[Rfam]
RNA sequence: GUUGCAAGUUCAAGGCCAUAGCAGAAGUGCUUGUGAUGUGGCCCUGUCAGACUCCAAUGAACCUGUGAAUUCUGCU
Number, nucleotide and partner (000 for none) at each position: 001g000002u000003u000004g000005c000006a000007a000008g000009u000010u000011c000012a000013a000014g043015g042016c041017c040018a000019u000020a076021g075022c074023a073024g072025a071026a070027g039028u038029g037030c000031u000032u000033g000034u000035g000036a000037u029038g028039u027040g017041g016042c015043c014044c000045u000046g000047u000048c065049a064050g063051a000052c000053u060054c059055c000056a000057a000058u000059g054060a053061a000062c000063c050064u049065g048066u000067g000068a000069a000070u026071u025072c024073u023074g022075c021076u020
A member of the RNA family "Mammalian CPEB3 ribozyme" from Alligator sinensis, 76 nucleotides long. Pairs were carried over by alignment from the consensus structure, which is taken from published work. Gene Ontology term of the family: RNA nuclease activity.